[Rfam]
RNA sequence: AACAUCAUUUUUAAUCGCUCACGCUGGUCCUACAUUUAAUUCAGAGGAGGAAGUCGUUUUCUAGUUCCUUCUGGUAUUCAGGACCGGCAAGAAGCGUAGAGGAAAUCAAGAUCGUUGCUGGGCGCCUGAUGUUGAUUCAUAGUAUGAUACAUUGGGAAUCAGCUGUUUCUACAUUC
Numbered sequence: 001a002a003c004a005u006c007a008u009u010u011u012u013a014a015u016c017g018c019u020c021a022c023g024c025u026g027g028u029c030c031u032a033c034a035u036u037u038a039a040u041u042c043a044g045a046g047g048a049g050g051a052a053g054u055c056g057u058u059u060u061c062u063a064g065u066u067c068c069u070u071c072u073g074g075u076a077u078u079c080a081g082g083a084c085c086g087g088c089a090a091g092a093a094g095c096g097u098a099g100a101g102g103a104a105a106u107c108a109a110g111a112u113c114g115u116u117g118c119u120g121g122g123c124g125c126c127u128g129a130u131g132u133u134g135a136u137u138c139a140u141a142g143u144a145u146g147a148u149a150c151a152u153u154g155g156g157a158a159u160c161a162g163c164u165g166u167u168u169c170u171a172c173a174u175u176c
Stems, first nucleotide, its partner, number of pairs: 016096003023088009037043001045072004050067003110169002113165002125156002129152004136147002
Dot-bracket structure: ...............(((....(((((((((.....(.....).((((.(((............))).)))).......))))))))).....))).............((.((..........((..((((...((........)).))))..)).......))..)).......

This 176-nucleotide RNA from Lachancea fermentati belongs to the Rfam family "Small nucleolar RNA snR32".
A reference for the family is Balakin et al. (1993), "SnR31, snR32, and snR33: three novel, non-essential snRNAs from Saccharomyces cerevisiae", Nucleic Acids Res.
By type it is an H/ACA-box small nucleolar RNA.
Taxonomically the source falls in Lachancea (Eukaryota, Opisthokonta, Dikarya, Saccharomycetes).